[Rfam]
The record is a 108-nucleotide RNA sequence from Ensete ventricosum, which matches "Small nucleolar RNA Z103" in Rfam. By type it is a C/D-box small nucleolar RNA. Rfam 15.1 lists 2,844 matches to the family in 233 species.
Nucleotides: 108
Base pairs, nucleotide, nucleotide: 002107003106004105005104
Number, partner (000 for none) and nucleotide at each position: 001000u002107g003106a004105g005104a006000u007000g008000u009000g010000a011000u012000g013000a014000u015000c016000c017000u018000u019000u020000c021000c022000c023000c024000a025000a026000a027000u028000g029000a030000u031000c032000g033000a034000c035000g036000a037000u038000g039000a040000a041000u042000a043000c044000a045000c046000u047000g048000c049000g050000c051000g052000u053000g054000u055000u056000u057000c058000u059000u060000u061000a062000u063000c064000u065000a066000c067000c068000c069000c070000u071000c072000a073000u074000u075000u076000u077000u078000g079000g080000g081000a082000a083000g084000a085000u086000u087000c088000a089000a090000g091000c092000c093000a094000g095000c096000g097000a098000u099000u100000c101000u102000g103000a104005u105004c106003u107002c108000c